[Rfam]
RNA sequence: GCUUCCGAGGAGCGUUGCAAGGCCCGUCGUCCGACGGCCCCAGGCUCGGAACCCCUUCUUCUGCAACGGCGCUCACCCGCA
Numbered sequence: 001g002c003u004u005c006c007g008a009g010g011a012g013c014g015u016u017g018c019a020a021g022g023c024c025c026g027u028c029g030u031c032c033g034a035c036g037g038c039c040c041c042a043g044g045c046u047c048g049g050a051a052c053c054c055c056u057u058c059u060u061c062u063g064c065a066a067c068g069g070c071g072c073u074c075a076c077c078c079g080c081a
Stems, first nucleotide, its partner, number of pairs: 003051006021039004
A member of the RNA family "SAH (S-adenosyl-L-homocysteine) riboswitch aptamer" from Ideonella dechloratans, 81 nucleotides long. The base pairs follow the family's consensus structure, which is taken from published work. Lineage of the source: Bacteria > Pseudomonadati > Pseudomonadota > Sphaerotilaceae > Ideonella.